The family of this 122-nucleotide RNA from Vibrio renipiscarius is "Phenylalanine leader peptide". The organism belongs to Vibrio, within Bacteria. The family has 71 seed sequences and 379 matches in Rfam 15.1. On this family, see Gurvich et al., Nucleic Acids Res 2010: "Two groups of phenylalanine biosynthetic operon leader peptides genes: a high level of apparently incidental frameshifting in decoding Escherichia coli pheL". Rfam classes the family as a cis-regulatory leader. A search with the family's covariance model found it, with a score of 75 bits.
[Rfam]
RNA sequence: GCCCCUCACCCCUCUGUUCUUUUUUGACUUGUUUUUUCUCCAAUAAACUUGGAGGCAGACUCGUUUUAGAAAGGUAAGUCAAAAACGAACAGAAAGCCUCCCUAUCGGGAGGUUUUUUUAUG
Numbered sequence: 001g002c003c004c005c006u007c008a009c010c011c012c013u014c015u016g017u018u019c020u021u022u023u024u025u026g027a028c029u030u031g032u033u034u035u036u037u038c039u040c041c042a043a044u045a046a047a048c049u050u051g052g053a054g055g056c057a058g059a060c061u062c063g064u065u066u067u068a069g070a071a072a073g074g075u076a077a078g079u080c081a082a083a084a085a086c087g088a089a090c091a092g093a094a095a096g097c098c099u100c101c102c103u104a105u106c107g108g109g110a111g112g113u114u115u116u117u118u119u120a121u122g
Stems, first nucleotide, its partner, number of pairs: 016090004021085014036070002039053004054065003058062001093116010